[Rfam]
RNA sequence: ACUGGAAGCUGCUGUCAACAGUUGUGGGCAAAUUAAGUAUGAUUUGUCCACUGGUGCAGUCUUCCUAGAGCAAAGUGGAGGUCUCUGUCUGCUUUAGGAGAGCCAACUAGACUGGAUCGUUCCCCUCCACACAUA
Numbered sequence: 001a002c003u004g005g006a007a008g009c010u011g012c013u014g015u016c017a018a019c020a021g022u023u024g025u026g027g028g029c030a031a032a033u034u035a036a037g038u039a040u041g042a043u044u045u046g047u048c049c050a051c052u053g054g055u056g057c058a059g060u061c062u063u064c065c066u067a068g069a070g071c072a073a074a075g076u077g078g079a080g081g082u083c084u085c086u087g088u089c090u091g092c093u094u095u096a097g098g099a100g101a102g103c104c105a106a107c108u109a110g111a112c113u114g115g116a117u118c119g120u121u122c123c124c125c126u127c128c129a130c131a132c133a134u135a
Base pairs, nucleotide, nucleotide: 004065005064006063008060009059010058011057012056024051025050026049027048028047029046077128078127079126080125081124085119087117088116089115091113093111094110095109096108097107
This 135-nucleotide RNA sequence from Nycticryphes semicollaris belongs to the Rfam family "Small Cajal body specific RNA 3". It is annotated as a small Cajal body RNA. Rfam 15.1 lists 642 matches to the family in 535 species. Clan: SCARNA3 clan. The family's consensus secondary structure was predicted with RNAalifold. Gene Ontology terms of the family: Cajal body, RNA processing and nucleolus.